[Rfam]
RNA: c-di-GMP-I riboswitch aptamer
Organism: Lachnospiraceae bacterium NE2001
RNA sequence: UGCGAACAAGGGCAUAGCUGUCUAAAGACAGUGACGCAAAGCUAUAGGAUCUAAGUUACUUGAUGUAAUAUGAUAGCCAGUUGCAAUU
Numbered sequence: 001u002g003c004g005a006a007c008a009a010g011g012g013c014a015u016a017g018c019u020g021u022c023u024a025a026a027g028a029c030a031g032u033g034a035c036g037c038a039a040a041g042c043u044a045u046a047g048g049a050u051c052u053a054a055g056u057u058a059c060u061u062g063a064u065g066u067a068a069u070a071u072g073a074u075a076g077c078c079a080g081u082u083g084c085a086a087u088u
Base pairs, nucleotide, nucleotide: 012037013036017032018031019030020029021028022027040082041081042080043079047078048077049074050073051072056068057067058066059065